Rfam assigns this 85-nucleotide RNA sequence from Camelus dromedarius to the family "Small nucleolar RNA SNORD53/SNORD92".
The pairing is the family consensus, mapped onto this sequence.
The family is grouped with related families in Rfam's "SNORD52 clan".
Lineage of the source: Eukaryota > Chordata > Teleostomi > Mammalia > Camelus.
It scores 59 bits against the family's covariance model.

[Rfam]
RNA sequence: GUGCUGUGAUGACACCUUAAAAUUGUGGUUUCUACUCACUGAGAGUAACAUGAGGACCUACUAUUCCUUGGCUGUGUCUGAGCAC
Numbered sequence: 001g002u003g004c005u006g007u008g009a010u011g012a013c014a015c016c017u018u019a020a021a022a023u024u025g026u027g028g029u030u031u032c033u034a035c036u037c038a039c040u041g042a043g044a045g046u047a048a049c050a051u052g053a054g055g056a057c058c059u060a061c062u063a064u065u066c067c068u069u070g071g072c073u074g075u076g077u078c079u080g081a082g083c084a085c
Stems, first nucleotide, its partner, number of pairs: 001085004